The family of this 117-nucleotide sequence from Nitrosomonas eutropha is "ALIL pseudoknot". The family's consensus secondary structure is taken from published work. The sequence is in the family's curated seed alignment.

RNA sequence: CGCUUUUUUCGCUCAGGCGGAGCUCGACCGCAAACUCAAAUCCUGAGAUCGUUCAUCGACCAGUACCGCGACGCCCAUGGGGUCGAGCCGAUCUGCAAGGUUUUGCAGGUCGCCCCA
Numbered sequence: 001c002g003c004u005u006u007u008u009u010c011g012c013u014c015a016g017g018c019g020g021a022g023c024u025c026g027a028c029c030g031c032a033a034a035c036u037c038a039a040a041u042c043c044u045g046a047g048a049u050c051g052u053u054c055a056u057c058g059a060c061c062a063g064u065a066c067c068g069c070g071a072c073g074c075c076c077a078u079g080g081g082g083u084c085g086a087g088c089c090g091a092u093c094u095g096c097a098a099g100g101u102u103u104u105g106c107a108g109g110u111c112g113c114c115c116c117a
Stems, first nucleotide, its partner, number of pairs: 017031004078117005089112002092109007